[Rfam]
RNA sequence: GGCGGUGACCUGCCGAAUCCGUGCGGCAAGGAGCACGGAACCGGGGACCCAAAAGAUCGGCUAAUUCCCGAUCAGGGGUGAAUCGGCGUCUCUAUGGCGUCGUAGGGCUACUUCCAUGCCCGAAUCCGUCAGCUAACCCGGUAGGCGUGAGUGGAAGAACCA
Numbered sequence: 001g002g003c004g005g006u007g008a009c010c011u012g013c014c015g016a017a018u019c020c021g022u023g024c025g026g027c028a029a030g031g032a033g034c035a036c037g038g039a040a041c042c043g044g045g046g047a048c049c050c051a052a053a054a055g056a057u058c059g060g061c062u063a064a065u066u067c068c069c070g071a072u073c074a075g076g077g078g079u080g081a082a083u084c085g086g087c088g089u090c091u092c093u094a095u096g097g098c099g100u101c102g103u104a105g106g107g108c109u110a111c112u113u114c115c116a117u118g119c120c121c122g123a124a125u126c127c128g129u130c131a132g133c134u135a136a137c138c139c140g141g142u143a144g145g146c147g148u149g150a151g152u153g154g155a156a157g158a159a160c161c162a
Stems, first nucleotide, its partner, number of pairs: 011147004018039007040142006050075001076127003084102004105121004

Shown here is a 162-nucleotide RNA from Sphaerisporangium melleum, a member of the family "c-di-AMP riboswitch aptamer (ydaO/yuaA leader)".
Lineage of the source: Bacteria > Actinomycetota > Actinomycetes > Streptosporangiaceae > Sphaerisporangium.